Shown here is a 116-nucleotide RNA from Cannabis sativa, a member of the family "U5 spliceosomal RNA". The family's RNA type in Rfam is spliceosomal small nuclear RNA. U5 RNA is a component of both types of known spliceosome. The precise function of this molecule is unknown, though it is known that the 5' loop is required for splice site selection and p220 binding, and that both the 3' stem-loop and the Sm site are important for Sm protein binding and cap methylation. The family's consensus secondary structure is taken from published work. On this family, see Thomas et al., Nucleic Acids Res 1990: "The spliceosomal snRNAs of Caenorhabditis elegans".
[Rfam]
RNA sequence: AGCCACGCGGUGAGCACAACGCGAACUAUUCUUUCGCCUUUUACUAAAGAAUACCGUGUGCUCGCCGCUAUUAGUGGCAUACGCCUAUUUUUGGAGGAGCCUCUCUUUAGAGUGCU
Numbered sequence: 001a002g003c004c005a006c007g008c009g010g011u012g013a014g015c016a017c018a019a020c021g022c023g024a025a026c027u028a029u030u031c032u033u034u035c036g037c038c039u040u041u042u043a044c045u046a047a048a049g050a051a052u053a054c055c056g057u058g059u060g061c062u063c064g065c066c067g068c069u070a071u072u073a074g075u076g077g078c079a080u081a082c083g084c085c086u087a088u089u090u091u092u093g094g095a096g097g098a099g100c101c102u103c104u105c106u107u108u109a110g111a112g113u114g115c116u
Stems, first nucleotide, its partner, number of pairs: 003077004008067011027053008095116001097115001099113002102110001
Rfam 15.1 lists 28,527 matches to the family in 2,489 species.